Source information
This 121-nucleotide sequence from Megacarpaea delavayi belongs to the Rfam family "Plastid-psbA-1 3UTR RNA". Pairs were carried over by alignment from the consensus structure, which was predicted with LocARNA. It is one of the family's seed sequences. NCBI's taxonomy places the organism under Eukaryota, Embryophyta, Tracheophyta, malvids, Megacarpaea. Clan: Plastid-psbA 3UTR RNA clan. The literature on the family includes a 2023 paper in Plant Commun by Richter et al., "Retrograde signaling in plants: A critical review focusing on the GUN pathway and beyond".
RNA sequence: GUUGAGGCUCCAUCUACAAAUGGAUAAUUCUUUAGCGUUAGUCUAGACCUAGUUUAGUAAUAGUAAAAAACGAGCAAUAUAAGCCUUUUUUUAAUUAAAAAAAGGCUUAUAUUGCUCGUUU
Numbered sequence: 001g002u003u004g005a006g007g008c009u010c011c012a013u014c015u016a017c018a019a020a021u022g023g024a025u026a027a028u029u030c031u032u033u034a035g036c037g038u039u040a041g042u043c044u045a046g047a048c049c050u051a052g053u054u055u056a057g058u059a060a061u062a063g064u065a066a067a068a069a070a071c072g073a074g075c076a077a078u079a080u081a082a083g084c085c086u087u088u089u090u091u092u093a094a095u096u097a098a099a100a101a102a103a104g105g106c107u108u109a110u111a112u113u114g115c116u117c118g119u120u121u
Base pairs, nucleotide, nucleotide: 009024010023011022012021013020068121069120070119071118072117073116074115075114076113077112078111079110080109086097